[Rfam]
RNA sequence: GUUUCUGGAUGAAGGCUGCAGGUUAAACCCCCCCCCCGGCCUCUGCAGCCGGAUGCAGAGAAAC
Numbered sequence: 001g002u003u004u005c006u007g008g009a010u011g012a013a014g015g016c017u018g019c020a021g022g023u024u025a026a027a028c029c030c031c032c033c034c035c036c037c038g039g040c041c042u043c044u045g046c047a048g049c050c051g052g053a054u055g056c057a058g059a060g061a062a063a064c
Stems, first nucleotide, its partner, number of pairs: 001064005014050009029039002
Dot-bracket structure: (((((........(((((((((......((.......))..))))))))).........)))))